[Rfam]
RNA sequence: CAAGUUUGUAAGCCAUAGCAGAAAUGCUCUUGGCAUGGCCUGUCAGAUUCCAACAAAUCUGUGAAUUCUGUU
Numbered sequence: 001c002a003a004g005u006u007u008g009u010a011a012g013c014c015a016u017a018g019c020a021g022a023a024a025u026g027c028u029c030u031u032g033g034c035a036u037g038g039c040c041u042g043u044c045a046g047a048u049u050c051c052a053a054c055a056a057a058u059c060u061g062u063g064a065a066u067u068c069u070g071u072u
Stems, first nucleotide, its partner, number of pairs: 012039003017072007024036003044061006
Mammalian CPEB3 ribozyme: a 72-nucleotide RNA sequence from Crocodylus porosus.
A reference for the family is Teixeira et al. (2004), "Autocatalytic RNA cleavage in the human beta-globin pre-mRNA promotes transcription termination", Nature.
The source organism's lineage runs through Eukaryota, Opisthokonta, Craniata, Longirostres and Crocodylus.
It scores 42 bits against the family's covariance model.